Record summary
Ribosomal protein L20 leader: a 122-nucleotide RNA sequence from Bacilli bacterium VT-13-104. About the family: This family is a putative r-protein leader autoregulatory structure found in B. subtilis and other low-GC Gram-positive bacteria. It is located in the 5' untranslated regions of mRNAs encoding initiation factor 3 followed by ribosomal proteins L35 and L20 (infC-rpmI-rplT). The match comes from Rfam's covariance-model search (68 bits). The family's RNA type in Rfam is cis-regulatory leader.
RNA sequence: AAAGACAAGUAGAAGCACCCGCUUCUCACCUGUUCGACGCACGUUUCGUGUAGUUGACUGGUUCCAAAUUUAUUAUGUGUAAUUGGAAUGUGUGGGUGUAUUACCGACACUUUUUUUCAUGU
Number, nucleotide and partner (000 for none) at each position: 001a000002a000003a000004g000005a000006c000007a000008a000009g000010u000011a026012g025013a024014a023015g022016c021017a000018c000019c000020c000021g016022c015023u014024u013025c012026u011027c000028a062029c061030c060031u000032g000033u000034u000035c000036g055037a054038c053039g051040c050041a049042c048043g047044u000045u000046u000047c043048g042049u041050g040051u039052a000053g038054u037055u036056g000057a000058c000059u000060g030061g029062u028063u000064c000065c000066a000067a000068a000069u000070u000071u000072a000073u000074u000075a000076u000077g000078u000079g000080u000081a000082a000083u000084u000085g000086g000087a000088a000089u000090g000091u109092g108093u107094g000095g105096g104097u103098g102099u000100a000101u000102u098103a097104c096105c095106g000107a093108c092109a091110c000111u000112u000113u000114u000115u000116u000117u000118c000119a000120u000121g000122u000